This 102-nucleotide sequence from Salipaludibacillus neizhouensis belongs to the Rfam family "Purine riboswitch aptamer". The family's consensus secondary structure is taken from published work. The source organism's lineage runs through Bacteria, Bacillota, Caryophanales, Bacillaceae and Salipaludibacillus. The match comes from Rfam's covariance-model search (83 bits).
RNA sequence: AAAUUAAAACUGUAAUUGCCGCAUAUAUCCUUGAGAAUAUGGCUCAAGAGUUUCUACCGGGUUGCCUUAAACAACCUGACUAUGAAGGCAGAUAUUUCUUUC
Numbered sequence: 001a002a003a004u005u006a007a008a009a010c011u012g013u014a015a016u017u018g019c020c021g022c023a024u025a026u027a028u029c030c031u032u033g034a035g036a037a038u039a040u041g042g043c044u045c046a047a048g049a050g051u052u053u054c055u056a057c058c059g060g061g062u063u064g065c066c067u068u069a070a071a072c073a074a075c076c077u078g079a080c081u082a083u084g085a086a087g088g089c090a091g092a093u094a095u096u097u098c099u100u101u102c
Base pairs, nucleotide, nucleotide: 019087022084023083024082025081030048031047032046033045034044035043058078059077060076061075062074063073064072